[Rfam]
RNA: mir-8364 microRNA precursor family
RNA sequence: UCUUCCUAUUCCACACUUUCUCACCUGUCAGAGAGGCGAGAGAGUGUGUGAGAUGAAGAGA
Numbered sequence: 001u002c003u004u005c006c007u008a009u010u011c012c013a014c015a016c017u018u019u020c021u022c023a024c025c026u027g028u029c030a031g032a033g034a035g036g037c038g039a040g041a042g043a044g045u046g047u048g049u050g051a052g053a054u055g056a057a058g059a060g061a
Stems, first nucleotide, its partner, number of pairs: 001059005007053001010050001012048006019041004